The family of this 145-nucleotide sequence from Hucho hucho is "Small nucleolar RNA SNORA29". It scores 51 bits against the family's covariance model. Taxonomically the source falls in Hucho (Eukaryota, Opisthokonta, Craniata, Actinopteri). Rfam classes the family as an H/ACA-box small nucleolar RNA. Its family is annotated with RNA processing and nucleolus in the Gene Ontology. On this family, see Huttenhofer et al., EMBO J 2001: "RNomics: an experimental approach that identifies 201 candidates for novel, small, non-messenger RNAs in mouse".

RNA sequence: CUUCCUGUUUUAUUACCGCCCAUCUGUCCACUCCACGGAUGUGUGGCUAUGCUAACGGGAUAGACUGUCCGUCGUAGUCUGAAGGGGUUGAACCUGAGCGAUCUUAAUUCUGACACCUCUAUAUGAAAUGACAACACAUUUGAGG
Numbered sequence: 001c002u003u004c005c006u007g008u009u010u011u012a013u014u015a016c017c018g019c020c021c022a023u024c025u026g027u028c029c030a031c032u033c034c035a036c037g038g039a040u041g042u043g044u045g046g047c048u049a050u051g052c053u054a055a056c057g058g059g060a061u062a063g064a065c066u067g068u069c070c071g072u073c074g075u076a077g078u079c080u081g082a083a084g085g086g087g088u089u090g091a092a093c094c095u096g097a098g099c100g101a102u103c104u105u106a107a108u109u110c111u112g113a114c115a116c117c118u119c120u121a122u123a124u125g126a127a128a129u130g131a132c133a134a135c136a137c138a139u140u141u142g143a144g145g
Base pairs, nucleotide, nucleotide: 004059005058006057007056016046017045018044019043071132072131073130074129090119091118